[Rfam]
RNA sequence: CUGAGCUACUGAUGAUUCAGAGUUAUCCCUGUCUGAAAAGAGAAUGUCAUUCUUUUUGUGGAAUUGUGGAUUCUGAAGCUCAG
Numbered sequence: 001c002u003g004a005g006c007u008a009c010u011g012a013u014g015a016u017u018c019a020g021a022g023u024u025a026u027c028c029c030u031g032u033c034u035g036a037a038a039a040g041a042g043a044a045u046g047u048c049a050u051u052c053u054u055u056u057u058g059u060g061g062a063a064u065u066g067u068g069g070a071u072u073c074u075g076a077a078g079c080u081c082a083g
Base pairs, nucleotide, nucleotide: 001083002082003081004080005079006078007077